[Rfam]
RNA sequence: GUAAAAGAAACCCGCAGAAAUCUGCGGGCUUGUCUUUAAGCAUCUAUCGAUGCAAGACAAUGGGAGAGGAGAAACCGGCGGAAAACUUAUGGGGAAACGUAAGCAUCCGCGGUUG
Numbered sequence: 001g002u003a004a005a006a007g008a009a010a011c012c013c014g015c016a017g018a019a020a021u022c023u024g025c026g027g028g029c030u031u032g033u034c035u036u037u038a039a040g041c042a043u044c045u046a047u048c049g050a051u052g053c054a055a056g057a058c059a060a061u062g063g064g065a066g067a068g069g070a071g072a073a074a075c076c077g078g079c080g081g082a083a084a085a086c087u088u089a090u091g092g093g094g095a096a097a098c099g100u101a102a103g104c105a106u107c108c109g110c111g112g113u114u115g
Stems, first nucleotide, its partner, number of pairs: 011028007029064005040053004076112001078110005086103004
RNA: ylbH leader